[Rfam]
RNA sequence: CAAUGAUAAAGGCAAAUCCGACGAAAGUUGGAGACGCAAAGCCACGGGUCUAAAGCAGAUGCCAUGACAGCCGGGUUACCGAA
Number, nucleotide and partner (000 for none) at each position: 001c000002a000003a000004u000005g000006a000007u000008a000009a000010a000011g000012g037013c036014a000015a000016a000017u032018c031019c030020g029021a028022c027023g000024a000025a000026a000027g022028u021029u020030g019031g018032a017033g000034a000035c000036g013037c012038a000039a000040a077041g076042c075043c074044a000045c073046g072047g071048g068049u067050c066051u000052a000053a000054a000055g062056c061057a000058g000059a000060u000061g056062c055063c000064a000065u000066g050067a049068c048069a000070g000071c047072c046073g045074g043075g042076u041077u040078a000079c000080c000081g000082a000083a000